Rfam assigns this 68-nucleotide RNA from Scopulibacillus darangshiensis to the family "Bacillus-plasmid RNA". The base pairs follow the family's consensus structure, which is taken from published work.
RNA sequence: UCCGUCAACGGUAAAUGUCUGACUGGAACGAAGUGGAAGGAAUUUAAGGAGUUGACGGGUUGCUCUCA
Numbered sequence: 001u002c003c004g005u006c007a008a009c010g011g012u013a014a015a016u017g018u019c020u021g022a023c024u025g026g027a028a029c030g031a032a033g034u035g036g037a038a039g040g041a042a043u044u045u046a047a048g049g050a051g052u053u054g055a056c057g058g059g060u061u062g063c064u065c066u067c068a
Stems, first nucleotide, its partner, number of pairs: 001059009
The match comes from Rfam's covariance-model search (40 bits).
By type it is a small RNA.